[Rfam]
RNA sequence: AUAGAGAGACUUCUGUAAAGGCUACCUUAUAAAAAGGUAGUGGUGAGAGUCCAAUGC
Dot-bracket structure: ...........(((.....))(((.(((.....))).)))(((.......))))...

Description
Shown here is a 57-nucleotide RNA from Trichechus manatus, a member of the family "pemK RNA". Pairs were carried over by alignment from the consensus structure, which is taken from published work. NCBI's taxonomy places the organism under Eukaryota, Metazoa, Teleostomi, Euteleostomi, Trichechus manatus.